[Rfam]
RNA sequence: CAGUUUUACAACUCUUUUAGAAUGUGUCUAGAAGGUUUUCUGCUCUUUACCAGAAACCCUCU
Numbered sequence: 001c002a003g004u005u006u007u008a009c010a011a012c013u014c015u016u017u018u019a020g021a022a023u024g025u026g027u028c029u030a031g032a033a034g035g036u037u038u039u040c041u042g043c044u045c046u047u048u049a050c051c052a053g054a055a056a057c058c059c060u061c062u
Stems, first nucleotide, its partner, number of pairs: 034059002037056006044049001

U7 small nuclear RNA: a 62-nucleotide RNA from Callithrix jacchus. The family's consensus secondary structure was predicted with PFOLD. Rfam's curators write: Animal histone pre-mRNAs are spliced by a different mechanism than nuclear pre-mRNAs and self-splicing introns. This processing involves the U7 snRNP, which contains only one RNA species: U7. The 5' end of U7 RNA is thought to base-pair to a conserved spacer element downstream of the cleavage site in histone pre-mRNA. This family contains a number of annotated U7 pseudogenes.